[Rfam]
RNA sequence: GCCACAGGAUGAUUUGAUGAGGAUUGCACGAGCACUCUGUGCAAAGACGACUGGCUAUCCAUCACCCUAGUCUGAUGGCU
Numbered sequence: 001g002c003c004a005c006a007g008g009a010u011g012a013u014u015u016g017a018u019g020a021g022g023a024u025u026g027c028a029c030g031a032g033c034a035c036u037c038u039g040u041g042c043a044a045a046g047a048c049g050a051c052u053g054g055c056u057a058u059c060c061a062u063c064a065c066c067c068u069a070g071u072c073u074g075a076u077g078g079c080u
Base pairs, nucleotide, nucleotide: 001079002078003077004076032042033041034040035039
RNA: Small nucleolar RNA SNORD83
Organism: Scleropages formosus